[Rfam]
RNA sequence: UGUCUCCUCCAACUCUCCUCAGAAAAGAAUUGGAUUCUGCCCGCUCCCAGGAGCGGGUUUUUUUUU
Numbered sequence: 001u002g003u004c005u006c007c008u009c010c011a012a013c014u015c016u017c018c019u020c021a022g023a024a025a026a027g028a029a030u031u032g033g034a035u036u037c038u039g040c041c042c043g044c045u046c047c048c049a050g051g052a053g054c055g056g057g058u059u060u061u062u063u064u065u066u
Stems, first nucleotide, its partner, number of pairs: 008034005014028002039058007